Annotation
This 132-nucleotide RNA from Bagarius yarrelli belongs to the Rfam family "Small nucleolar RNA SNORA47". Gene Ontology terms of the family: nucleolus and RNA processing. The literature on the family includes a 2001 paper in EMBO J by Huttenhofer et al., "RNomics: an experimental approach that identifies 201 candidates for novel, small, non-messenger RNAs in mouse". Taxonomically the source falls in Bagarius (Eukaryota, Chordata, Otomorpha, Siluriformes).

RNA sequence: UGGAGGCUUGAGAAAGUUUGGAUGUUGUUACAGUACUGCCAAAACUGGUUAUUUCCUCCAAAAUUAAAUCUCGAUCACUGCAUUCAUGUCUGACACCCCAUUCAGAUUAUGUGCUAUGGUCGAGGACAUUUC
Numbered sequence: 001u002g003g004a005g006g007c008u009u010g011a012g013a014a015a016g017u018u019u020g021g022a023u024g025u026u027g028u029u030a031c032a033g034u035a036c037u038g039c040c041a042a043a044a045c046u047g048g049u050u051a052u053u054u055c056c057u058c059c060a061a062a063a064u065u066a067a068a069u070c071u072c073g074a075u076c077a078c079u080g081c082a083u084u085c086a087u088g089u090c091u092g093a094c095a096c097c098c099c100a101u102u103c104a105g106a107u108u109a110u111g112u113g114c115u116a117u118g119g120u121c122g123a124g125g126a127c128a129u130u131u132c
Stems, first nucleotide, its partner, number of pairs: 002059005015046004019041003024036002079124001081122001084119001086117003094111002098105001